This 95-nucleotide RNA sequence from Streptomyces qinzhouensis belongs to the Rfam family "Glycine riboswitch aptamer". Pairs were carried over by alignment from the consensus structure. It scores 65 bits against the family's covariance model.
[Rfam]
RNA sequence: UGAAUCCGCGCGGGAGAGACCCGGGGCACGACCCCGGGCGCCGAAGGAGCAAGUUCCUCCCUUGAAUCUCUCAGGCCCCGUACCGCGUGCGAUGA
Numbered sequence: 001u002g003a004a005u006c007c008g009c010g011c012g013g014g015a016g017a018g019a020c021c022c023g024g025g026g027c028a029c030g031a032c033c034c035c036g037g038g039c040g041c042c043g044a045a046g047g048a049g050c051a052a053g054u055u056c057c058u059c060c061c062u063u064g065a066a067u068c069u070c071u072c073a074g075g076c077c078c079c080g081u082a083c084c085g086c087g088u089g090c091g092a093u094g095a
Base pairs, nucleotide, nucleotide: 007089008088009087010086011085012084013083020038021037022036023035040076041075042074043072044071047070048069049068053063